[Rfam]
RNA sequence: AGUCGGAAAUCGGGAGACACUGGCGGAUGUCAGGGCCGAAGGAGCAACCGCCCCGGUAAACUCUCAGGCAAAGCGAACCGUUUUCCGACG
Numbered sequence: 001a002g003u004c005g006g007a008a009a010u011c012g013g014g015a016g017a018c019a020c021u022g023g024c025g026g027a028u029g030u031c032a033g034g035g036c037c038g039a040a041g042g043a044g045c046a047a048c049c050g051c052c053c054c055g056g057u058a059a060a061c062u063c064u065c066a067g068g069c070a071a072a073g074c075g076a077a078c079c080g081u082u083u084u085c086c087g088a089c090g
Stems, first nucleotide, its partner, number of pairs: 006085004011080003020033004035069003038065002042063003048056002

A member of the RNA family "Glycine riboswitch aptamer" from Paracoccus aestuariivivens, 90 nucleotides long. The organism belongs to Paracoccus, within Bacteria.